RNA: Small nucleolar RNA SNORA71
Organism: Salmo trutta
RNA sequence: ACCUGUAUCGAAAGUGGCUGUGGCAUGGUUGUUGCCAGGUCAUUGAUAAUGCAGGAAGAUGGAACUGACAGAUUUUCCCUGUGUUUGUUGGGCCGUCGAUCCCUCUCAAACCCUGUAUCUUUCAGACA
Number, nucleotide and partner (000 for none) at each position: 001a000002c055003c054004u053005g052006u051007a050008u049009c000010g000011a000012a000013a044014g043015u042016g041017g040018c039019u038020g000021u000022g036023g035024c034025a033026u000027g000028g000029u000030u000031g000032u000033u025034g024035c023036c022037a000038g019039g018040u017041c016042a015043u014044u013045g000046a000047u000048a000049a008050u007051g006052c005053a004054g003055g002056a000057a000058g000059a000060u000061g000062g000063a000064a000065c000066u124067g123068a122069c000070a120071g119072a118073u000074u000075u000076u000077c000078c000079c000080u000081g000082u000083g111084u110085u109086u108087g107088u000089u000090g103091g102092g101093c000094c000095g000096u000097c000098g000099a000100u000101c092102c091103c090104u000105c000106u000107c087108a086109a085110a084111c083112c000113c000114u000115g000116u000117a000118u072119c071120u070121u000122u068123c067124a066125g000126a000127c000128a000